A member of the RNA family "SAM riboswitch aptamer (S box leader)" from Clostridium sp. Maddingley MBC34-26, 118 nucleotides long. From the family's description: The SAM riboswitch is found upstream of a number of genes which code for proteins involved in methionine or cysteine biosynthesis in Gram-positive bacteria.
RNA sequence: AUCUUAUUAAGAGUGGUGGAGGGACUGGCCCUUUGAAGCCCGGCAACCUGAAAAAAAUUUCAUAUAAAUUUUUUCGUUGGUGCUAAAUCCUGCAAGAGAAUAUCUUGAAAAAUGAGAG
Numbered sequence: 001a002u003c004u005u006a007u008u009a010a011g012a013g014u015g016g017u018g019g020a021g022g023g024a025c026u027g028g029c030c031c032u033u034u035g036a037a038g039c040c041c042g043g044c045a046a047c048c049u050g051a052a053a054a055a056a057a058u059u060u061c062a063u064a065u066a067a068a069u070u071u072u073u074u075c076g077u078u079g080g081u082g083c084u085a086a087a088u089c090c091u092g093c094a095a096g097a098g099a100a101u102a103u104c105u106u107g108a109a110a111a112a113u114g115a116g117a118g
Base pairs, nucleotide, nucleotide: 002117003116004115005114006113007112008111013041015040016039017038021031022030023029025092027090028089042084043083044082045081047080048079049076050075051074052073053072054071055070056069088110093107094106095105096104097103